RNA sequence: UCACGGGAUAGGCAACGCGAGCCGAAAAGGGCGUCCCUGGCCCCUGCCCGUGGCAAAUCAAUCAGGG
Numbered sequence: 001u002c003a004c005g006g007g008a009u010a011g012g013c014a015a016c017g018c019g020a021g022c023c024g025a026a027a028a029g030g031g032c033g034u035c036c037c038u039g040g041c042c043c044c045u046g047c048c049c050g051u052g053g054c055a056a057a058u059c060a061a062u063c064a065g066g067g
Base pairs, nucleotide, nucleotide: 001053002052003051004050005049006048007047011023012022013021029043030042031041032040035067036066037065038064039063
The family of this 67-nucleotide RNA from Desulfatibacillum alkenivorans is "int-alpA RNA". It scores 40 bits against the family's covariance model. Acidobacteria (1 example), Planctomycetes (1 example), Proteobacteria. The family's consensus secondary structure is taken from published work.